[Rfam]
RNA: Eukaryotic large subunit ribosomal RNA, nucleotides 2961 to 3333
RNA sequence: AAGCGUUGUCGUGAUAGUAAUCCUUUUAAGUACGAGAGGAACCAAAGGAUGUGACCUAUAUAAAGAAGCCUAUUUGAGUAGAUACGGCUUGAAUACACGUCGCUGGGGUCGUAGUGAUGAAAGCCUCUAAUCAUGAAGCCCUCCUAAAAUAUGUACUCUUAGUGUUAAGUCGACAACAGUUCAAUUGACUAGGUUAGUGAUAUGAAUACGAUGAAGUUCUUACUUGUCGGAAAGUCCUCUGAUUGAAAGCAUUUUUAAUGGUCAAUGAACAAAGAUCCUUUGUAGACGACUUAGCAUUUCCUAGGGGUUGUAAGUUUUCGAGUUGACUUAGUUCAACGAGAAAUUGAGACUUAUCCUGGUGAAUGGUAUUGAU
Numbered sequence: 001a002a003g004c005g006u007u008g009u010c011g012u013g014a015u016a017g018u019a020a021u022c023c024u025u026u027u028a029a030g031u032a033c034g035a036g037a038g039g040a041a042c043c044a045a046a047g048g049a050u051g052u053g054a055c056c057u058a059u060a061u062a063a064a065g066a067a068g069c070c071u072a073u074u075u076g077a078g079u080a081g082a083u084a085c086g087g088c089u090u091g092a093a094u095a096c097a098c099g100u101c102g103c104u105g106g107g108g109u110c111g112u113a114g115u116g117a118u119g120a121a122a123g124c125c126u127c128u129a130a131u132c133a134u135g136a137a138g139c140c141c142u143c144c145u146a147a148a149a150u151a152u153g154u155a156c157u158c159u160u161a162g163u164g165u166u167a168a169g170u171c172g173a174c175a176a177c178a179g180u181u182c183a184a185u186u187g188a189c190u191a192g193g194u195u196a197g198u199g200a201u202a203u204g205a206a207u208a209c210g211a212u213g214a215a216g217u218u219c220u221u222a223c224u225u226g227u228c229g230g231a232a233a234g235u236c237c238u239c240u241g242a243u244u245g246a247a248a249g250c251a252u253u254u255u256u257a258a259u260g261g262u263c264a265a266u267g268a269a270c271a272a273a274g275a276u277c278c279u280u281u282g283u284a285g286a287c288g289a290c291u292u293a294g295c296a297u298u299u300c301c302u303a304g305g306g307g308u309u310g311u312a313a314g315u316u317u318u319c320g321a322g323u324u325g326a327c328u329u330a331g332u333u334c335a336a337c338g339a340g341a342a343a344u345u346g347a348g349a350c351u352u353a354u355c356c357u358g359g360u361g362a363a364u365g366g367u368a369u370u371g372a373u
Base pairs, nucleotide, nucleotide: 005158010153011152012151015146016145017144020050021049022048023047024046025045026044051103052102053101054100055099059097061095066090067089068088069087071084072083073082074081075080105141106140107139114134115133116132117131118130274370275369276368278294279293282290298363299362300361302359303357304356305355307350308349314344315343316342317341319340322337323336324335325334326333